Shown here is a 63-nucleotide RNA, a member of the family "DUF2815 RNA". The base pairs follow the family's consensus structure, which is taken from published work. It is annotated as a small RNA.
[Rfam]
RNA sequence: CGGGUAGACAGAUUGGCCCCGACUGAAGACCAAUCUUAAUGUUAAAAAGGAAUUAAUAUCAUG
Numbered sequence: 001c002g003g004g005u006a007g008a009c010a011g012a013u014u015g016g017c018c019c020c021g022a023c024u025g026a027a028g029a030c031c032a033a034u035c036u037u038a039a040u041g042u043u044a045a046a047a048a049g050g051a052a053u054u055a056a057u058a059u060c061a062u063g
Stems, first nucleotide, its partner, number of pairs: 001021004010036007